[Rfam]
RNA sequence: UGCUCAUCGAGAGGGGCAGAGGGACACGGCCCGCUGAAGCCCCGGCAACCGUCCGAGACCGUGCCGACCGACCUGGGUCGGCGCCCGCGGAGCUGGUGCCACGUCCGUCCCGAGGUCGAGAUCCGUCGCUCGGGGAAGAUGAGAA
Number, nucleotide and partner (000 for none) at each position: 001u145002g000003c143004u142005c141006a140007u139008c138009g000010a000011g000012a000013g043014g042015g041016g040017c039018a000019g000020a000021g032022g031023g030024a000025c000026a108027c107028g106029g105030c023031c022032c021033g000034c000035u000036g000037a000038a000039g017040c016041c015042c014043c013044g100045g099046c098047a097048a000049c096050c095051g000052u091053c090054c089055g000056a000057g000058a000059c000060c000061g000062u000063g000064c000065c000066g000067a000068c000069c000070g000071a000072c000073c000074u000075g000076g000077g000078u000079c000080g000081g000082c000083g000084c000085c000086c000087g000088c000089g054090g053091a052092g000093c000094u000095g050096g049097u047098g046099c045100c044101a000102c000103g000104u137105c029106c028107g027108u026109c134110c133111c132112g131113a130114g129115g000116u000117c000118g000119a000120g000121a000122u000123c000124c000125g000126u000127c000128g000129c114130u113131c112132g111133g110134g109135g000136a000137a104138g008139a007140u006141g005142a004143g003144a000145a001
This 145-nucleotide sequence belongs to the Rfam family "SAM riboswitch aptamer (S box leader)". The match comes from Rfam's covariance-model search (69 bits).